Rfam assigns this 57-nucleotide sequence from Ameiurus melas to the family "U7 small nuclear RNA".
The base pairs follow the family's consensus structure, which was predicted with PFOLD.
The match comes from Rfam's covariance-model search (51 bits).
Animal histone pre-mRNAs are spliced by a different mechanism than nuclear pre-mRNAs and self-splicing introns. This processing involves the U7 snRNP, which contains only one RNA species: U7. The 5' end of U7 RNA is thought to base-pair to a conserved spacer element downstream of the cleavage site in histone pre-mRNA. This family contains a number of annotated U7 pseudogenes.
Lineage of the source: Eukaryota > Opisthokonta > Euteleostomi > Siluriformes > Ameiurus.
RNA sequence: GAAAAUUUGCUCUUUUAGUAUUUGUCUAGCAGGGUCCUUUAAUACUAAGGACCCCCU
Dot-bracket structure: ...............................((((((((.......))))))))...